The family of this 73-nucleotide sequence from Novimethylophilus kurashikiensis is "tRNA".
RNA sequence: CCCUGUCUGGCGCAACUGAUAGCGCAGCGGACUCUUACUCCGACGGUUGUGGGUUUGACUCCCACGGCAGGGA
Numbered sequence: 001c002c003c004u005g006u007c008u009g010g011c012g013c014a015a016c017u018g019a020u021a022g023c024g025c026a027g028c029g030g031a032c033u034c035u036u037a038c039u040c041c042g043a044c045g046g047u048u049g050u051g052g053g054u055u056u057g058a059c060u061c062c063c064a065c066g067g068c069a070g071g072g073a
Base pairs, nucleotide, nucleotide: 001072002071003070004069005068006067007066010025011024012023013022028042029041030040031039049065050064051063052062053061

Annotation: A search with the family's covariance model found it, with a score of 54 bits.